[Rfam]
RNA sequence: CUGCAGUGCAUUGUAGUUGCAUUGCAUGUGUGUCUUAAAGGAGUGCAAUGUACCUGCAGUGCAAUACAG
Numbered sequence: 001c002u003g004c005a006g007u008g009c010a011u012u013g014u015a016g017u018u019g020c021a022u023u024g025c026a027u028g029u030g031u032g033u034c035u036u037a038a039a040g041g042a043g044u045g046c047a048a049u050g051u052a053c054c055u056g057c058a059g060u061g062c063a064a065u066a067c068a069g
Stems, first nucleotide, its partner, number of pairs: 001069003006065001007063010019051001021049007